Transposase-1 RNA: a 59-nucleotide sequence. Rfam classes the family as a small RNA. The sequence is in the family's curated seed alignment. Pairs were carried over by alignment from the consensus structure, which is taken from published work.

[Rfam]
Nucleotides: 059
Base pairs, nucleotide, nucleotide: 009054010053011052012051013050014049020044021043022042023041027038028037029036
Number, partner (000 for none) and nucleotide at each position: 001000c002000c003000a004000a005000a006000a007000g008000a009054g010053u011052c012051g013050g014049u015000c016000a017000a018000u019000g020044c021043g022042a023041u024000u025000a026000c027038u028037c029036c030000c031000a032000a033000g034000u035000u036029g037028g038027a039000a040000u041023a042022u043021c044020g045000g046000a047000a048000a049014a050013c051012c052011g053010a054009u055000g056000a057000g058000g059000a